This 127-nucleotide RNA from Peucedramus taeniatus belongs to the Rfam family "Small nucleolar RNA SNORA69". Rfam links the family to the GO terms RNA processing and nucleolus. The family has 16 seed sequences and 808 matches in Rfam 15.1. A search with the family's covariance model found it, with a score of 70 bits. From the family's description: U69 is a member of the H/ACA class of small nucleolar RNAs (snoRNAs) which act as guides in the the modification of uridines to pseudouridines. The source organism's lineage runs through Eukaryota, Chordata, Gnathostomata, Neoaves and Peucedramus.
RNA sequence: UAAGCAGGCUGCAAUUGCAGUGCUUCCUGCUGUGGGAGUGCUGCCAUUUUCCUGCUGAGAGCAACUCUGUUAACACUGUCUGUGUUUUCACCCACGCCGUGGUGAAAGCAUUUGUUGUUGGACCAGU
Number, nucleotide and partner (000 for none) at each position: 001u000002a000003a056004g055005c054006a053007g052008g051009c000010u000011g000012c000013a000014a000015u000016u000017g000018c043019a042020g041021u040022g039023c038024u037025u036026c035027c000028u000029g000030c000031u000032g000033u000034g000035g026036g025037a024038g023039u022040g021041c020042u019043g018044c000045c000046a000047u000048u000049u000050u000051c008052c007053u006054g005055c004056u003057g000058a000059g000060a000061g000062c000063a000064a000065c000066u000067c121068u120069g119070u000071u117072a116073a000074c000075a000076c000077u000078g000079u000080c000081u000082g000083u110084g109085u108086u107087u106088u105089c104090a103091c102092c101093c000094a000095c000096g000097c000098c000099g000100u000101g092102g091103u090104g089105a088106a087107a086108g085109c084110a083111u000112u000113u000114g000115u000116u072117g071118u000119u069120g068121g067122a000123c000124c000125a000126g000127u000